[Rfam]
A member of the RNA family "Small nucleolar RNA SNORD116" from Neotoma lepida, 91 nucleotides long. The literature on the family includes a 2000 paper in Proc Natl Acad Sci U S A by Cavaille et al., "Identification of brain-specific and imprinted small nucleolar RNA genes exhibiting an unusual genomic organization". It scores 65 bits against the family's covariance model.

RNA sequence: GAAUUGAUGAUGAUUUCCAAUAAAUCAAUCUUUGGAAAGUUGAAGAAAAUGAGUGAUAACAGUACAGCCGCUCUCCCUGAAACUGAGGUCC
Dot-bracket structure: (.(((....................((.((.((............))...)).))...............................))).)
The organism belongs to Neotoma, within Eukaryota.